A member of the RNA family "mir-344 microRNA precursor family" from Mesocricetus auratus, 64 nucleotides long. The base pairs follow the family's consensus structure, which was predicted with RNAalifold. The match comes from Rfam's covariance-model search (60 bits). A reference for the family is Chiang et al. (2010), "Mammalian microRNAs: experimental evaluation of novel and previously annotated genes", Genes Dev. Taxonomically the source falls in Mesocricetus (Eukaryota, Bilateria, Craniata, Gnathostomata).
RNA sequence: UUUCCAGUCAGGCUCUGGCUUAUAUCCAGCUCUUAGCUGGAAUAAGCCAAAGCCUGGCUGUAAG
Numbered sequence: 001u002u003u004c005c006a007g008u009c010a011g012g013c014u015c016u017g018g019c020u021u022a023u024a025u026c027c028a029g030c031u032c033u034u035a036g037c038u039g040g041a042a043u044a045a046g047c048c049a050a051a052g053c054c055u056g057g058c059u060g061u062a063a064g
Stems, first nucleotide, its partner, number of pairs: 007058003011054004016049008026040005
Dot-bracket structure: ......(((.((((.((((((((..(((((.....))))).)))))))).)))).)))......